[Rfam]
RNA: CRISPR RNA direct repeat element
RNA sequence: GCUGCGCCCGGCGUUCGCGCCGGGCGAGGAUCGCAAC
Numbered sequence: 001g002c003u004g005c006g007c008c009c010g011g012c013g014u015u016c017g018c019g020c021c022g023g024g025c026g027a028g029g030a031u032c033g034c035a036a037c
Stems, first nucleotide, its partner, number of pairs: 005026009